This 86-nucleotide RNA sequence from Alkalicoccus urumqiensis belongs to the Rfam family "Glycine riboswitch aptamer". A search with the family's covariance model found it, with a score of 44 bits. The pairing is the family consensus, mapped onto this sequence.
[Rfam]
RNA sequence: CUCUGGAGAGAUCCGUAAAGCCGGAUCACCGAUGGGGAAAACCCUGUUCAUAACAGGCGUAAACUCUCAGGUACAAAAGGACAGAG
Numbered sequence: 001c002u003c004u005g006g007a008g009a010g011a012u013c014c015g016u017a018a019a020g021c022c023g024g025a026u027c028a029c030c031g032a033u034g035g036g037g038a039a040a041a042c043c044c045u046g047u048u049c050a051u052a053a054c055a056g057g058c059g060u061a062a063a064c065u066c067u068c069a070g071g072u073a074c075a076a077a078a079g080g081a082c083a084g085a086g
Stems, first nucleotide, its partner, number of pairs: 001086005011026004028072003031068002035066003041060002